[Rfam]
RNA: Streptococcus sRNA SpF59 (ldcC RNA)
RNA sequence: UGACCGCUUCCCCGAAAACGGAAGCUGAGGCUACACGGACGGCCGGGUCAGAUGCCGA
Numbered sequence: 001u002g003a004c005c006g007c008u009u010c011c012c013c014g015a016a017a018a019c020g021g022a023a024g025c026u027g028a029g030g031c032u033a034c035a036c037g038g039a040c041g042g043c044c045g046g047g048u049c050a051g052a053u054g055c056c057g058a
Stems, first nucleotide, its partner, number of pairs: 001050005006025006